[Rfam]
RNA sequence: GUUCUUUGGGGUGAUGGCGCCGCCCGGGGCUUCGAGCCGAACCGCCUCCCGUUGGGAGGCUGAUGGCGCCUAUUCUGUA
Numbered sequence: 001g002u003u004c005u006u007u008g009g010g011g012u013g014a015u016g017g018c019g020c021c022g023c024c025c026g027g028g029g030c031u032u033c034g035a036g037c038c039g040a041a042c043c044g045c046c047u048c049c050c051g052u053u054g055g056g057a058g059g060c061u062g063a064u065g066g067c068g069c070c071u072a073u074u075c076u077g078u079a
Base pairs, nucleotide, nucleotide: 010024011023012022013021016070017069018068019067020065044060045059046058047057048056049055050054

Record summary: The family of this 79-nucleotide RNA sequence is "Fluoride riboswitch aptamer (crcB RNA motif)". It is one of the family's seed sequences.